[Rfam]
RNA sequence: UAGUGAGCUCACUAUAUAGUGAGCUCACUAUAUAGUGAGCUCACUAUAUAGUGAGCUCACUAUAUAGUGAGCUCACUA
Numbered sequence: 001u002a003g004u005g006a007g008c009u010c011a012c013u014a015u016a017u018a019g020u021g022a023g024c025u026c027a028c029u030a031u032a033u034a035g036u037g038a039g040c041u042c043a044c045u046a047u048a049u050a051g052u053g054a055g056c057u058c059a060c061u062a063u064a065u066a067g068u069g070a071g072c073u074c075a076c077u078a
Stems, first nucleotide, its partner, number of pairs: 002077005008071015024055005031050004037042001
RNA: mir-2763 microRNA precursor family